[Rfam]
RNA sequence: AUUUCUGGAUGAUGGAAGAGCAGUGAAAGAUCUUUGAAGUGCUGAAUGUUCGGAAUCAACAGAAACAAGAGCUGCAUCUGUAUCUCCUGAAGAGAAGU
Numbered sequence: 001a002u003u004u005c006u007g008g009a010u011g012a013u014g015g016a017a018g019a020g021c022a023g024u025g026a027a028a029g030a031u032c033u034u035u036g037a038a039g040u041g042c043u044g045a046a047u048g049u050u051c052g053g054a055a056u057c058a059a060c061a062g063a064a065a066c067a068a069g070a071g072c073u074g075c076a077u078c079u080g081u082a083u084c085u086c087c088u089g090a091a092g093a094g095a096a097g098u
Stems, first nucleotide, its partner, number of pairs: 001098006
RNA: Small nucleolar RNA sn2991
Organism: Caenorhabditis remanei